The family of this 48-nucleotide RNA sequence from Marmoricola endophyticus is "L31-Actinobacteria ribosomal protein leader". The match comes from Rfam's covariance-model search (50 bits).

RNA sequence: CUGGUUCCGGUUCACGUGCCUCGUCCCCGAGGUCACGACCCGGCGACC
Numbered sequence: 001c002u003g004g005u006u007c008c009g010g011u012u013c014a015c016g017u018g019c020c021u022c023g024u025c026c027c028c029g030a031g032g033u034c035a036c037g038a039c040c041c042g043g044c045g046a047c048c
Base pairs, nucleotide, nucleotide: 003048004047005046007043008042009041010040015037016036017035018034019032020031021030022029
By type it is a cis-regulatory leader.